[Rfam]
RNA sequence: GCCCAAAGCUAUUGGGUCCUGCUGGCAGCAGGGCCCAAUGCUAUUGGGCCCUAUUGGUCUGCAGGACCUAACAGAGUUGGGUCU
Numbered sequence: 001g002c003c004c005a006a007a008g009c010u011a012u013u014g015g016g017u018c019c020u021g022c023u024g025g026c027a028g029c030a031g032g033g034c035c036c037a038a039u040g041c042u043a044u045u046g047g048g049c050c051c052u053a054u055u056g057g058u059c060u061g062c063a064g065g066a067c068c069u070a071a072c073a074g075a076g077u078u079g080g081g082u083c084u
Stems, first nucleotide, its partner, number of pairs: 001084001004081001007078003012071011024059003027055001031051009
Shown here is an 84-nucleotide RNA from Populus deltoides, a member of the family "MIR474 microRNA precursor family". A reference for the family is Lu et al. (2005), "Novel and mechanical stress-responsive MicroRNAs in Populus trichocarpa that are absent from Arabidopsis", Plant Cell. The source organism's lineage runs through Eukaryota, Viridiplantae, Embryophyta, Tracheophyta and Populus.